[Rfam]
RNA sequence: AGUGAUGAUAGAGGUGCGAAAAUCAUCAGUACCGUUUAAGAGGAGCAGCUACUCCGAAGAGGAAAUGGGAAAGGGAAAUUCGCCGAAGUAUAAACAACUUGCAAUUGUUUGUGCUGGUCCUGUAUUGAAAAAAUACUGGACUGUCAGAAUCAUAAGAUUCUGGAGGGCUAUCUCACAC
Numbered sequence: 001a002g003u004g005a006u007g008a009u010a011g012a013g014g015u016g017c018g019a020a021a022a023u024c025a026u027c028a029g030u031a032c033c034g035u036u037u038a039a040g041a042g043g044a045g046c047a048g049c050u051a052c053u054c055c056g057a058a059g060a061g062g063a064a065a066u067g068g069g070a071a072a073g074g075g076a077a078a079u080u081c082g083c084c085g086a087a088g089u090a091u092a093a094a095c096a097a098c099u100u101g102c103a104a105u106u107g108u109u110u111g112u113g114c115u116g117g118u119c120c121u122g123u124a125u126u127g128a129a130a131a132a133a134u135a136c137u138g139g140a141c142u143g144u145c146a147g148a149a150u151c152a153u154a155a156g157a158u159u160c161u162g163g164a165g166g167g168c169u170a171u172c173u174c175a176c177a178c
Stems, first nucleotide, its partner, number of pairs: 007172005016083005023076002032068006087115011116142005122136005144163007
A member of the RNA family "Lysine riboswitch aptamer" from Paenisporosarcina cavernae, 178 nucleotides long.
It scores 130 bits against the family's covariance model.
Gene Ontology term of the family: lysine biosynthetic process.
Pairs were carried over by alignment from the consensus structure, which is taken from published work.